[Rfam]
RNA sequence: CUGGUUCCGGUUCACGUCCCCGACGAGCUCGGGUGGCGACCCGGCGACC
Numbered sequence: 001c002u003g004g005u006u007c008c009g010g011u012u013c014a015c016g017u018c019c020c021c022g023a024c025g026a027g028c029u030c031g032g033g034u035g036g037c038g039a040c041c042c043g044g045c046g047a048c049c
Stems, first nucleotide, its partner, number of pairs: 003049003007044004015038004019033004